[Rfam]
RNA: M23 RNA
RNA sequence: CGGCAGGCCGCCGGCCGUAACAGGCGGCCAUCGGAUCACGCUCCGGUGAAAGG
Numbered sequence: 001c002g003g004c005a006g007g008c009c010g011c012c013g014g015c016c017g018u019a020a021c022a023g024g025c026g027g028c029c030a031u032c033g034g035a036u037c038a039c040g041c042u043c044c045g046g047u048g049a050a051a052g053g
Stems, first nucleotide, its partner, number of pairs: 007028006030047006
Dot-bracket structure: ......((((((..........)))))).((((((......))))))......